Rfam assigns this 197-nucleotide RNA from Miscanthus lutarioriparius to the family "MIR1435 microRNA precursor family". Rfam links the family to the GO terms RISC complex and miRNA-mediated post-transcriptional gene silencing. It scores 103 bits against the family's covariance model. NCBI's taxonomy places the organism under Eukaryota, Tracheophyta, Petrosaviidae, Poaceae, Miscanthus. Rfam 15.1 lists 1,765 matches to the family in 31 species.
RNA sequence: UAGCUUUGUCCCAAGUCAAACUUCUCUAACUCUGACUUAGUUUUUAGAAAAGUAUACUAACAUCUACAAGUUCAAAUAAAUGCACUAUCAUGACAUUUCAUAGAGAAUUUAAUGAAACUAAUCCGAUGUUGUAAGGGUAGGUACAUUUUUCUAUAAACUUCGUAAAAGUUGGAGAAGUUUGACUUAGUGCAGUUAAA
Numbered sequence: 001u002a003g004c005u006u007u008g009u010c011c012c013a014a015g016u017c018a019a020a021c022u023u024c025u026c027u028a029a030c031u032c033u034g035a036c037u038u039a040g041u042u043u044u045u046a047g048a049a050a051a052g053u054a055u056a057c058u059a060a061c062a063u064c065u066a067c068a069a070g071u072u073c074a075a076a077u078a079a080a081u082g083c084a085c086u087a088u089c090a091u092g093a094c095a096u097u098u099c100a101u102a103g104a105g106a107a108u109u110u111a112a113u114g115a116a117a118c119u120a121a122u123c124c125g126a127u128g129u130u131g132u133a134a135g136g137g138u139a140g141g142u143a144c145a146u147u148u149u150u151c152u153a154u155a156a157a158c159u160u161c162g163u164a165a166a167a168g169u170u171g172g173a174g175a176a177g178u179u180u181g182a183c184u185u186a187g188u189g190c191a192g193u194u195a196a197a
Stems, first nucleotide, its partner, number of pairs: 006192004011187001013185014031166001035163001045153008055143003060138002063135001065133004072126002076122002